[Rfam]
RNA sequence: AUCGUAGGUGCUCGGGCUUUACGCUUACCAGUGAAGAUUCGUCUGAGGUAGCGUUUUUGCUAGUUGAAAACUACAACUAUGACCGCUCCAGUUGGUCUUCGGAUCGACUGGGAAUUUUUGCCACCCAUCUGUAUGC
Number, nucleotide and partner (000 for none) at each position: 001a000002u000003c000004g000005u000006a000007g000008g000009u000010g000011c000012u000013c000014g000015g000016g000017c000018u000019u000020u000021a054022c053023g052024c051025u050026u000027a049028c048029c047030a000031g000032u000033g000034a000035a044036g043037a042038u000039u000040c000041g000042u037043c036044u035045g000046a000047g029048g028049u027050a025051g024052c023053g022054u021055u000056u000057u000058u000059g000060c000061u000062a000063g000064u000065u000066g000067a000068a000069a000070a000071c000072u000073a000074c000075a000076a000077c000078u000079a000080u000081g000082a000083c000084c000085g000086c000087u112088c111089c110090a109091g108092u107093u106094g105095g104096u103097c102098u000099u000100c000101g000102g097103a096104u095105c094106g093107a092108c091109u090110g089111g088112g087113a000114a000115u000116u000117u000118u000119u000120g000121c000122c000123a000124c000125c000126c135127a134128u133129c000130u000131g000132u000133a128134u127135g126136c000